[Rfam]
This 105-nucleotide RNA from Paraburkholderia sp. BL10I2N1 belongs to the Rfam family "Group II catalytic intron D1-D4-1".
RNA sequence: GCCUCGUGUCUGAAAGGACGACGGCGUCGAGCCGGAGCGAGAAGUCAGCAGAGGCCGUAGUAGUCACAGGACGGGCCGAUGAGGCCGAAGCUGGUGACGAAGGGC
Numbered sequence: 001g002c003c004u005c006g007u008g009u010c011u012g013a014a015a016g017g018a019c020g021a022c023g024g025c026g027u028c029g030a031g032c033c034g035g036a037g038c039g040a041g042a043a044g045u046c047a048g049c050a051g052a053g054g055c056c057g058u059a060g061u062a063g064u065c066a067c068a069g070g071a072c073g074g075g076c077c078g079a080u081g082a083g084g085c086c087g088a089a090g091c092u093g094g095u096g097a098c099g100a101a102g103g104g105c
Base pairs, nucleotide, nucleotide: 001025002024004023007020008019009018010017011016045052046051054105055104056103063098064097065096066095067094
Group II introns are found in rRNA, tRNA and mRNA of organelles in fungi, plants and protists, and also in mRNA in bacteria.
Lineage of the source: Bacteria > Pseudomonadota > Betaproteobacteria > Burkholderiales > Paraburkholderia.
The pairing is the family consensus, mapped onto this sequence.